[Rfam]
RNA sequence: ACAUUAUCGGGGGCAGUGUCCUCCAUAAUGU
Numbered sequence: 001a002c003a004u005u006a007u008c009g010g011g012g013g014c015a016g017u018g019u020c021c022u023c024c025a026u027a028a029u030g031u
Stems, first nucleotide, its partner, number of pairs: 001031007009024005014018001